[Rfam]
Annotation:
The family of this 125-nucleotide sequence from Aotus nancymaae is "U4atac minor spliceosomal RNA". The match comes from Rfam's covariance-model search (98 bits). The family's consensus secondary structure is taken from published work. Rfam classes the family as a spliceosomal small nuclear RNA. The family is grouped with related families in Rfam's "U4 clan". Lineage of the source: Eukaryota > Euteleostomi > Amniota > Boreoeutheria > Aotus. A reference for the family is Lorkovic et al. (2005), "Evolutionary conservation of minor U12-type spliceosome between plants and humans", RNA.
RNA sequence: AUCAUCCUUUUCUUGGGGUUGCACUACUUUCCAAUGAAUACAUAGUGACGGAAGUACUACUAAUGCCUACACAACAACCUGCAUCACCUAGAGCUUUGCUUUACCUUGGUGCAAUUUUUGGAAAA
Number, nucleotide and partner (000 for none) at each position: 001a000002u000003c000004a000005u000006c018007c017008u016009u015010u000011u000012c000013u000014u000015g009016g008017g007018g006019u000020u000021g060022c000023a058024c000025u000026a055027c054028u053029u052030u051031c050032c000033a000034a000035u000036g000037a000038a046039u045040a000041c000042a000043u000044a000045g039046u038047g000048a000049c000050g031051g030052a029053a028054g027055u026056a000057c000058u023059a000060c021061u000062a000063a000064u000065g000066c000067c000068u000069a000070c000071a000072c000073a000074a000075c000076a000077a000078c000079c000080u000081g112082c111083a110084u109085c108086a107087c000088c000089u103090a102091g101092a100093g099094c098095u000096u000097u000098g094099c093100u092101u091102u090103a089104c000105c000106u000107u086108g085109g084110u083111g082112c081113a000114a000115u000116u000117u000118u000119u000120g000121g000122a000123a000124a000125a000
The family has 61 seed sequences and 1,648 matches in Rfam 15.1.